The record is a 68-nucleotide sequence from Perca flavescens, which matches "mir-29 microRNA precursor family" in Rfam. This family represents the microRNA (miRNA) precursors mir-29. Rfam 15.1 lists 3,328 matches to the family in 787 species. Its family is annotated with gene silencing by miRNA and RISC complex in the Gene Ontology. The source organism's lineage runs through Eukaryota, Eurypterygia, Percomorphaceae, Percoidei and Perca. It scores 69 bits against the family's covariance model.

RNA sequence: GGAAGCUGGUUUCAGAUGGUGGCUUAGAGUAUUGUCAUCGAUCUAGCACCAUUUGAAAUCAGUGUUCU
Numbered sequence: 001g002g003a004a005g006c007u008g009g010u011u012u013c014a015g016a017u018g019g020u021g022g023c024u025u026a027g028a029g030u031a032u033u034g035u036c037a038u039c040g041a042u043c044u045a046g047c048a049c050c051a052u053u054u055g056a057a058a059u060c061a062g063u064g065u066u067c068u
Stems, first nucleotide, its partner, number of pairs: 001068004005063010016052006025045004